[Rfam]
RNA sequence: GGCUGCUUACCUUCACUACGGAUCGUCGGGCACGUACCUGCCCGUGAAAGGGACCCAC
Numbered sequence: 001g002g003c004u005g006c007u008u009a010c011c012u013u014c015a016c017u018a019c020g021g022a023u024c025g026u027c028g029g030g031c032a033c034g035u036a037c038c039u040g041c042c043c044g045u046g047a048a049a050g051g052g053a054c055c056c057a058c
Stems, first nucleotide, its partner, number of pairs: 010051002012048004027044006
Source information:
The record is a 58-nucleotide RNA sequence from Nesterenkonia natronophila, which matches "msiK RNA" in Rfam.